[Rfam]
RNA sequence: AAAUAGUUAAGGAUGUGGGAUGCUCUAGUUUUAGCCGGCUGAAGAGGCCCUUAAUUGGUCCUACAACGGCCUGAGGUAGGGGGGUUUUAGUCGGUAGGUCCGAGGACUUCUUCCUCGGGAAUCGACACUACCCAGUCGUACUACUGGGCUGGGUGUCUUUUAUAGAUUUCCCCUCCUCCACGAAA
Numbered sequence: 001a002a003a004u005a006g007u008u009a010a011g012g013a014u015g016u017g018g019g020a021u022g023c024u025c026u027a028g029u030u031u032u033a034g035c036c037g038g039c040u041g042a043a044g045a046g047g048c049c050c051u052u053a054a055u056u057g058g059u060c061c062u063a064c065a066a067c068g069g070c071c072u073g074a075g076g077u078a079g080g081g082g083g084g085u086u087u088u089a090g091u092c093g094g095u096a097g098g099u100c101c102g103a104g105g106a107c108u109u110c111u112u113c114c115u116c117g118g119g120a121a122u123c124g125a126c127a128c129u130a131c132c133c134a135g136u137c138g139u140a141c142u143a144c145u146g147g148g149c150u151g152g153g154u155g156u157c158u159u160u161u162a163u164a165g166a167u168u169u170c171c172c173c174u175c176c177u178c179c180a181c182g183a184a185a
Base pairs, nucleotide, nucleotide: 055184056183058181059180073178078177079176080175082172083171084170090126091125092124094123099119100118101117102116103115104114105113106112128155130154131153132152133151134150
This 185-nucleotide RNA sequence from Agrilus planipennis belongs to the Rfam family "R2 RNA element". Rfam classes the family as a cis-regulatory element. It scores 39 bits against the family's covariance model. For this family Rfam cites "Secondary structure models of the 3' untranslated regions of diverse R2 RNAs" (Ruschak et al., RNA, 2004). Rfam links the family to the GO term regulation of reverse transcription. This family represents the 3' UTR region of the R2 retrotransposable element. Pairs were carried over by alignment from the consensus structure, which is taken from published work.